Fluoride riboswitch aptamer (crcB RNA motif): a 61-nucleotide sequence. A search with the family's covariance model found it, with a score of 57 bits.
[Rfam]
RNA sequence: AUGAUUUCAGGAGAUGGCAUUCCUCCUUUAACCGCCUAGUGCUGAUGAUGCCUACGUGAAC
Numbered sequence: 001a002u003g004a005u006u007u008c009a010g011g012a013g014a015u016g017g018c019a020u021u022c023c024u025c026c027u028u029u030a031a032c033c034g035c036c037u038a039g040u041g042c043u044g045a046u047g048a049u050g051c052c053u054a055c056g057u058g059a060a061c
Stems, first nucleotide, its partner, number of pairs: 010026004016052006034042002